[Rfam]
RNA sequence: GGUUCGGGAGCCUUCCGGUGGGACGGAAGGCAGGUAUGGAACCGCCUCCCAUUCGCAAGCGGCGUGCAUCGGGCCCCGACGAUGCACA
Numbered sequence: 001g002g003u004u005c006g007g008g009a010g011c012c013u014u015c016c017g018g019u020g021g022g023a024c025g026g027a028a029g030g031c032a033g034g035u036a037u038g039g040a041a042c043c044g045c046c047u048c049c050c051a052u053u054c055g056c057a058a059g060c061g062g063c064g065u066g067c068a069u070c071g072g073g074c075c076c077c078g079a080c081g082a083u084g085c086a087c088a
Stems, first nucleotide, its partner, number of pairs: 001043005010031008064087008
RNA: Rhodo-rpoB RNA
Organism: Rhodobacter capsulatus